Small nucleolar RNA Z278: a 115-nucleotide RNA sequence from Triticum urartu. A search with the family's covariance model found it, with a score of 62 bits. Pairs were carried over by alignment from the consensus structure, which was predicted with PFOLD. Rfam describes the family as follows. snoZ278 is a C/D box small nucleolar RNA. Its methylation guide targets have not been reported.
RNA sequence: GCCGAUGAUGCUGUGCCCAACAUUUGGAGGUGCAGAUGGCUCUAGGAUCCUGUUUACAGGAUGAACCUACCUGGAGGCGCUGUAUCCACGUGACAUUGAUGGGAAAGUCUGAGUU
Dot-bracket structure: (.(............................................(((((....)))))...................................................).)
Rfam 15.1 lists 1,130 matches to the family in 214 species.